[Rfam]
Nucleotides: 129
Stems, first nucleotide, its partner, number of pairs: 003127005009121002017029003031109002033098002035048004043096002052073002078094005100112003
Number, partner (000 for none) and nucleotide at each position: 001000c002000g003127u004126g005125c006124g007123c008000u009121c010120c011000g012000g013000g014000g015000c016000u017029c018028g019027g020000u021000g022000a023000a024000a025000g026000u027019c028018c029017g030000a031109a032108c033098c034097g035048g036047c037046g038045g039000u040000a041000c042000a043096g044095c045038c046037c047036g048035c049000g050000a051000c052073c053072c054000g055000u056000c057000a058000a059000c060000g061000a062000c063000c064000u065000c066000g067000u068000u069000g070000g071000c072053g073052g074000c075000u076000g077000a078094c079093u080092c081091g082090g083000u084000g085000a086000g087000a088000u089000u090082c091081c092080g093079g094078g095044g096043c097034c098033g099000a100112c101111g102110g103000u104000g105000a106000a107000a108032g109031u110102c111101c112100g113000g114000a115000u116000g117000g118000g119000a120010g121009g122000c123007g124006c125005g126004c127003a128000c129000g

The family of this 129-nucleotide sequence from Solihabitans fulvus is "FMN riboswitch aptamer (RFN element)". NCBI's taxonomy places the organism under Bacteria, Bacillati, Actinomycetota, Actinomycetes, Solihabitans.